[Rfam]
RNA sequence: GAAAUAAGCCGUCUUAUCGCUGCCUAGAAUAAGGGAGAGGAAAGUCCGAACAGCGUAGAGCAUCAUGCUACCUAACAGGUAGGGGGUAAGUGGGUGACCGCUUAUUUACAGCAAGUGCAGCAGAAAGUAUACCGCCAAGCCUCGGUUUGGUAAGGGUGAAAAGGUGAGGUAAGAGCUCCCCGCAUUGGCAGUAAUGUCCGUGGCAAUGUAAACCUCAUGAGCUGAAAGAUUAAAUAAGUUCUGAAUUUCUACUGACUCGGUAGAGUGCCUUCGGGCCGUCAGGAUGGGUAAAUCGUUAGAGGUUUGAAGCGAUUCAAAUCCUAGAUAAAUGAUAAGAGUUUUGAGCAAUCAAAAUACAGAAUUCGGCUUAUAGGCUUAUUUCUUCU
Number, nucleotide and partner (000 for none) at each position: 001g382002a381003a380004a379005u378006a377007a376008g375009c374010c373011g371012u337013c336014u335015u334016a333017u332018c331019g000020c037021u036022g000023c034024c033025u032026a000027g000028a000029a000030u000031a000032a025033g024034g023035g000036a021037g020038a000039g000040g000041a000042a369043a368044g367045u000046c366047c365048g364049a363050a362051c224052a223053g222054c221055g000056u000057a000058g000059a000060g271061c000062a000063u220064c219065a218066u217067g216068c082069u081070a080071c079072c078073u000074a000075a000076c000077a000078g072079g071080u070081a069082g068083g109084g107085g106086g105087u104088a103089a102090g101091u100092g099093g098094g000095u000096g000097a000098c093099c092100g091101c090102u089103u088104a087105u086106u085107u084108a000109c083110a215111g214112c000113a000114a000115g213116u212117g209118c208119a207120g000121c000122a000123g000124a000125a000126a000127g000128u000129a000130u000131a000132c155133c154134g151135c150136c149137a148138a147139g146140c145141c000142u000143c000144g000145g140146u139147u138148u137149g136150g135151u134152a000153a000154g133155g132156g000157u000158g000159a000160a000161a000162a000163g181164g180165u000166g178167a177168g176169g000170u000171a000172a000173g000174a000175g000176c168177u167178c166179c000180c164181c163182g204183c202184a201185u200186u000187g198188g197189c196190a195191g000192u000193a000194a000195u190196g189197u188198c187199c000200g185201u184202g183203g000204c182205a000206a000207u119208g118209u117210a000211a000212a116213c115214c111215u110216c067217a066218u065219g064220a063221g054222c053223u052224g051225a000226a000227a000228g294229a293230u292231u291232a000233a000234a000235u000236a000237a000238g285239u284240u283241c282242u281243g280244a000245a000246u000247u000248u000249c000250u000251a000252c000253u000254g000255a000256c000257u000258c000259g000260g000261u000262a000263g000264a000265g000266u000267g276268c275269c274270u000271u060272c000273g000274g269275g268276c267277c000278g000279u000280c243281a242282g241283g240284a239285u238286g000287g000288g000289u000290a000291a231292a230293u229294c228295g000296u000297u000298a000299g000300a000301g320302g319303u318304u317305u316306g315307a314308a313309g000310c000311g000312a000313u308314u307315c306316a305317a304318a303319u302320c301321c000322u000323a000324g000325a000326u000327a000328a000329a000330u000331g018332a017333u016334a015335a014336g013337a012338g000339u000340u000341u000342u000343g000344a000345g000346c000347a000348a000349u000350c000351a000352a000353a000354a000355u000356a000357c000358a000359g000360a000361a000362u050363u049364c048365g047366g046367c044368u043369u042370a000371u011372a000373g010374g009375c008376u007377u006378a005379u004380u003381u002382c001383u000384u000385c000386u000

About this RNA: Shown here is a 386-nucleotide RNA from Arcticibacterium luteifluviistationis, a member of the family "Bacterial RNase P class A". The family's RNA type in Rfam is ribozyme. It scores 256 bits against the family's covariance model.